[Rfam]
Enterococcus-1 RNA: a 150-nucleotide sequence from Enterococcus faecalis. The sequence is in the family's curated seed alignment. Taxonomically the source falls in Enterococcus faecalis (Bacteria, Bacillota, Bacilli, Enterococcaceae).

RNA sequence: ACUGCGGAACGCUUCCUUGUGGUCUCACAAGGAACAACUCGUGUCAAUGUCCUUUUCCGUUAAGCGAGGAACGAGCAGGAAAAGGAAACGUUCCCCAGUCGGCACGAAUGGGAAUAGAACGUUUAAUUGACGCGCGUUGAGUGCAGCAGU
Numbered sequence: 001a002c003u004g005c006g007g008a009a010c011g012c013u014u015c016c017u018u019g020u021g022g023u024c025u026c027a028c029a030a031g032g033a034a035c036a037a038c039u040c041g042u043g044u045c046a047a048u049g050u051c052c053u054u055u056u057c058c059g060u061u062a063a064g065c066g067a068g069g070a071a072c073g074a075g076c077a078g079g080a081a082a083a084g085g086a087a088a089c090g091u092u093c094c095c096c097a098g099u100c101g102g103c104a105c106g107a108a109u110g111g112g113a114a115u116a117g118a119a120c121g122u123u124u125a126a127u128u129g130a131c132g133c134g135c136g137u138u139g140a141g142u143g144c145a146g147c148a149g150u
Base pairs, nucleotide, nucleotide: 001150002149003148004147005146009142010141013034014033015032016031017030018029019028020027021026035139036138037137038136040134041133042132043131044130045129046128047127048126052084053083057079058078086124087123088122089121090120091119094112095111096110097109